[Rfam]
Nucleotides: 086
Base pairs, nucleotide, nucleotide: 004052006050007049008048009047010046011045012044015041016040017074018073019072020071021070026037027036028035029034064080065079066078067077
Number, partner (000 for none) and nucleotide at each position: 001000a002000g003000g004052g005000a006050g007049g008048g009047c010046c011045g012044u013000g014000a015041c016040u017074g018073g019072c020071g021070c022000u023000g024000a025000g026037g027036u028035g029034g030000a031000g032000c033000a034029c035028c036027a037026c038000c039000g040016g041015g042000g043000a044012g045011c046010g047009g048008c049007c050006c051000a052004c053000g054000c055000a056000g057000a058000g059000u060000c061000g062000a063000a064080u065079g066078c067077c068000g069000u070021g071020c072019g073018c074017c075000u076000g077067g078066g079065c080064g081000a082000a083000c084000a085000g086000g